Shown here is a 99-nucleotide RNA from Helianthus annuus, a member of the family "mir-393 microRNA precursor family". It scores 62 bits against the family's covariance model. Its family is annotated with miRNA-mediated post-transcriptional gene silencing and RISC complex in the Gene Ontology. The base pairs follow the family's consensus structure. The literature on the family includes a 2012 paper in J Plant Physiol by Kruszka et al., "Role of microRNAs and other sRNAs of plants in their changing environments".

RNA sequence: GGAGGAAGCUUCCGAAGAGAUCGCAUGAUCCAAAUUAUCAACUGAGAUGGAAAUCCGAGCGGACGGAUGGAUCAAUGCGAUCCCUUUGGAAGCUUCCAC
Numbered sequence: 001g002g003a004g005g006a007a008g009c010u011u012c013c014g015a016a017g018a019g020a021u022c023g024c025a026u027g028a029u030c031c032a033a034a035u036u037a038u039c040a041a042c043u044g045a046g047a048u049g050g051a052a053a054u055c056c057g058a059g060c061g062g063a064c065g066g067a068u069g070g071a072u073c074a075a076u077g078c079g080a081u082c083c084c085u086u087u088g089g090a091a092g093c094u095u096c097c098a099c
Base pairs, nucleotide, nucleotide: 002099004097005096006095008093009092010091011090012089013088014087015086016085017084019082020081021080023078024077025076026074027073028072029071030070031069035066